The family of this 110-nucleotide RNA from Clostridiaceae bacterium OM08-6BH is "TPP riboswitch aptamer (THI element)".
The base pairs follow the family's consensus structure, which is taken from published work.
A search with the family's covariance model found it, with a score of 65 bits.
RNA sequence: AAAUAAGUACCGGGGAGCCUGCGGAAGUGGGCUGAGAUCUGACUGAUACCGUCAGGACCCGUAUACCUGAUUUGGAUCAUGCCAACGUAGGAAGUAACUGUGAAAAGAUA
Numbered sequence: 001a002a003a004u005a006a007g008u009a010c011c012g013g014g015g016a017g018c019c020u021g022c023g024g025a026a027g028u029g030g031g032c033u034g035a036g037a038u039c040u041g042a043c044u045g046a047u048a049c050c051g052u053c054a055g056g057a058c059c060c061g062u063a064u065a066c067c068u069g070a071u072u073u074g075g076a077u078c079a080u081g082c083c084a085a086c087g088u089a090g091g092a093a094g095u096a097a098c099u100g101u102g103a104a105a106a107g108a109u110a
Stems, first nucleotide, its partner, number of pairs: 008096003011061004017032005039055005066091004072085004